[Rfam]
RNA sequence: AAAAGAAAAGAGCAAUAAUCAUUUUCUUGUUCUUUCAAGAGGGUAUUAUUGCUCCUUUCU
Numbered sequence: 001a002a003a004a005g006a007a008a009a010g011a012g013c014a015a016u017a018a019u020c021a022u023u024u025u026c027u028u029g030u031u032c033u034u035u036c037a038a039g040a041g042g043g044u045a046u047u048a049u050u051g052c053u054c055c056u057u058u059c060u
Stems, first nucleotide, its partner, number of pairs: 006058003010054008021044002024041006

The family of this 60-nucleotide sequence from Solanum lycopersicum is "Plastid-psbA-4 3UTR RNA". The family's consensus secondary structure was predicted with LocARNA. A reference for the family is Richter et al. (2023), "Retrograde signaling in plants: A critical review focusing on the GUN pathway and beyond", Plant Commun. The match comes from Rfam's covariance-model search (65 bits). Plastid psbA-4 is a non-coding RNA (ncRNA) present in plastids. It was identified in inverted repeat sequences in the 3 prime untranslate region (3UTR) of photosystem II quinone-binding protein (psbA). Taxonomically the source falls in Solanum subgen. Lycopersicon (Eukaryota, Embryophyta, lamiids, Solaneae).